[Rfam]
RNA sequence: UUGCACAGUGAACACCCAAGUAUACUUCAUAGUUCCCUUGGUAUGACUCUGUGCUGUGUCUCUGCAAUGGAAGGAAUUCUUUCCUUUUACAUGUAUUCAAAAGGACUGUAAAUUU
Numbered sequence: 001u002u003g004c005a006c007a008g009u010g011a012a013c014a015c016c017c018a019a020g021u022a023u024a025c026u027u028c029a030u031a032g033u034u035c036c037c038u039u040g041g042u043a044u045g046a047c048u049c050u051g052u053g054c055u056g057u058g059u060c061u062c063u064g065c066a067a068u069g070g071a072a073g074g075a076a077u078u079c080u081u082u083c084c085u086u087u088u089a090c091a092u093g094u095a096u097u098c099a100a101a102a103g104g105a106c107u108g109u110a111a112a113u114u115u
Stems, first nucleotide, its partner, number of pairs: 003054006010048001013045002016041005024033003061101001063099002065093002069088007
Background
Rfam assigns this 115-nucleotide sequence from Mauremys mutica to the family "Small nucleolar RNA SNORA22". The family's RNA type in Rfam is H/ACA-box small nucleolar RNA. A search with the family's covariance model found it, with a score of 88 bits. ACA22 is a member of the H/ACA class of snoRNA that guide the sites of modification of uridines to pseudouridines. The base pairs follow the family's consensus structure, which was predicted with RNAfold.